[Rfam]
RNA sequence: AGCAAGUGCUAGGGGUGCCUUAGUGGCUGAGAAAUGAAUGGAAUUCAUUAACCCUUCACCUGAUCUGGGUAAUUCCAGCGUAGGGAAGCGUACGACAAUGUAU
Number, nucleotide and partner (000 for none) at each position: 001a000002g000003c000004a000005a000006g091007u090008g089009c088010u087011a055012g054013g053014g052015g000016u000017g027018c026019c025020u000021u000022a000023g000024u000025g019026g018027c017028u000029g000030a000031g000032a000033a000034a048035u047036g046037a045038a044039u000040g000041g000042a000043a000044u038045u037046c036047a035048u034049u000050a000051a000052c014053c013054c012055u011056u000057c000058a000059c084060c083061u082062g081063a000064u000065c078066u077067g076068g075069g000070u000071a000072a000073u000074u000075c068076c067077a066078g065079c000080g000081u062082a061083g060084g059085g000086a000087a010088g009089c008090g007091u006092a000093c000094g000095a000096c000097a000098a000099u000100g000101u000102a000103u000

Rfam assigns this 103-nucleotide RNA sequence from Propionispora sp. 2/2-37 to the family "TPP riboswitch aptamer (THI element)". The organism belongs to Propionispora, within Bacteria. A search with the family's covariance model found it, with a score of 71 bits. Rfam links the family to the GO term thiamine pyrophosphate binding.